[Rfam]
RNA sequence: UUAAAGGAUAGAGGUGCAAACUUCAAUAGUAAAAGCUUUGAGAAGAAUGAGCUUCAAUGAAAAGCUUUGAAAGGGGAGUUUGCCGAAGUAAAGAAAGACUCAUUUAUUUCUUUGCUGGUUCUGCUUUGAAUAGAAGCAGAAUUGUCAAGUUGAACAAUAACAACUUGGAGAGCUAUCUCUUUG
Dot-bracket structure: .....((((((....(((((((((.......((((((((.....................))))))))......)))))))))...((((((((((.(......).))))))))))(((((((((((.....))))))))))).(((((((..........)))))))....)))))).....
Numbered sequence: 001u002u003a004a005a006g007g008a009u010a011g012a013g014g015u016g017c018a019a020a021c022u023u024c025a026a027u028a029g030u031a032a033a034a035g036c037u038u039u040g041a042g043a044a045g046a047a048u049g050a051g052c053u054u055c056a057a058u059g060a061a062a063a064g065c066u067u068u069g070a071a072a073g074g075g076g077a078g079u080u081u082g083c084c085g086a087a088g089u090a091a092a093g094a095a096a097g098a099c100u101c102a103u104u105u106a107u108u109u110c111u112u113u114g115c116u117g118g119u120u121c122u123g124c125u126u127u128g129a130a131u132a133g134a135a136g137c138a139g140a141a142u143u144g145u146c147a148a149g150u151u152g153a154a155c156a157a158u159a160a161c162a163a164c165u166u167g168g169a170g171a172g173c174u175a176u177c178u179c180u181u182u183g
Stems, first nucleotide, its partner, number of pairs: 006178006016083009032068008087116010098105001117143011145168007
Rfam assigns this 183-nucleotide RNA from Bacillus aquiflavi to the family "Lysine riboswitch aptamer". The family's consensus secondary structure is taken from published work. A search with the family's covariance model found it, with a score of 145 bits.